[Rfam]
RNA sequence: CUGCGUGCAGCGGCCCGGAGCGGGCGGGGGGCGGCGCCGGGAGGCGGGGAGCCCGGGGGGGGGGGGCGGUGGGUGCGGGGGGCGGAGAAGAGAAGAUGUGACGCCGCGGCCCGGCUGUGCCAGACGGUGGACGCCGUGCCCGCAGCUGCAACCGGGUCGCGGGCGUUGCGGCGGAGGGGAGCGGCCCUCCCUCCCGAGCGUGGCGGCCGCGGAGCCUCGCAGCCCCAGGUCCCCGCUCCCGGGGCCGGCGGAGGGGGCCGGGCCGAGCGGCACGAGGCGGGGGGCCCGCGGCCGUGGCCGGGGGCCGCCGGGCGGGAGGCUGGGGGGCCGGGGCCGGGGCCGCGCCUCGGAGCGGGUGGGAGGCCGAGGCCGGGGCCGGGGGGCUCGGGGGCCCCGGCAGAGCCCCGGCGGGGCCAUG
Dot-bracket structure: ..........(((((((............((((((.((...............((((((..(((.........((((((..............................((..((.((((...............))))..))..........))....(((.((((((......((((.(........).))))....)))))).)))......))))))..)))...))))))....((.(.(.......................).).))..........................)).))))))...)))...........))))...............((((...)))).........(.(((......(.(.......(((...)))..).).))).)............

The family of this 418-nucleotide sequence from Pipistrellus kuhlii is "FGF-2 internal ribosome entry site (IRES)". About the family: This family represents the fibroblast growth factor 2 (FGF-2) internal ribosome entry site (IRES). Rfam 15.1 lists 95 matches to the family in 84 species. The organism belongs to Pipistrellus, within Eukaryota. The match comes from Rfam's covariance-model search (59 bits).